[Rfam]
The family of this 100-nucleotide RNA from Sapajus apella is "Y RNA". From the family's description: Y RNAs are components of the Ro ribonucleoprotein particle (Ro RNP), in association with Ro60 and La proteins. The Y RNAs and Ro60 and La proteins are well conserved, but the function of the Ro RNP is not known. In humans the RNA component can be one of four small RNAs -- hY1, hY3, hY4 and hY5. It is annotated as a non-coding RNA gene. A reference for the family is Teunissen et al. (2000), "Conserved features of Y RNAs: a comparison of experimentally derived secondary structures", Nucleic Acids Res. The match comes from Rfam's covariance-model search (50 bits).
RNA sequence: UACUGGUCCAAGUGCAGUGGUAUUUACAACUAAUUGAUCACAACUAGUUAUAGGUUCUUUGUUUCUUCUUCACUUUCACUGUUUCACUUAACUAGCUUAA
Numbered sequence: 001u002a003c004u005g006g007u008c009c010a011a012g013u014g015c016a017g018u019g020g021u022a023u024u025u026a027c028a029a030c031u032a033a034u035u036g037a038u039c040a041c042a043a044c045u046a047g048u049u050a051u052a053g054g055u056u057c058u059u060u061g062u063u064u065c066u067u068c069u070u071c072a073c074u075u076u077c078a079c080u081g082u083u084u085c086a087c088u089u090a091a092c093u094a095g096c097u098u099a100a
Stems, first nucleotide, its partner, number of pairs: 003095005010089002014085001016080005022075001028063003032059002

The organism belongs to Sapajus, within Eukaryota.